[Rfam]
RNA: Guanidine-II riboswitch aptamer (mini-ykkC)
Organism: Alkalilimnicola ehrlichii
RNA sequence: CGCCGGGGACGGCCCCGUGCGUACUCCGUAUUUCGGCGGGACGACCCGC
Dot-bracket structure: ((((((((....))))).)))..............(((((....)))))